RNA sequence: GGUACGUUAUUUAACCCCACGAUAAGCCCCGGAAACUUAUUCGUGAUAUAAAUAAAAU
Numbered sequence: 001g002g003u004a005c006g007u008u009a010u011u012u013a014a015c016c017c018c019a020c021g022a023u024a025a026g027c028c029c030c031g032g033a034a035a036c037u038u039a040u041u042c043g044u045g046a047u048a049u050a051a052a053u054a055a056a057a058u
Stems, first nucleotide, its partner, number of pairs: 008054006018045003021041006
Dot-bracket structure: .......((((((....(((((((((.........)))))).)))...))))))....